RNA sequence: UAACAUGCGUGGGCGGCACUCCACAACAAUGUCGUUCACAGCAGCAAAGAAGGAGGAAUCACGUUUCCCUGGGACUCGGGGUGCGGCAGUGUGGAGACCUGUCGUAAUGCGGCGCGCCGAAACGGCGGCCGCGAGAACGUCGACGGCGGAGGCCCGGCGUUUCAGAGUCGUGGAAGUAUGGCA
Dot-bracket structure: ........((((((((((...........))))))))))...........................[[[[(.(((((]]]]((((((((.((....))))))))))..(((((.(((.......))))))))..((((((((..(((....))))))))).)).))))).)............
RNA: malK-I RNA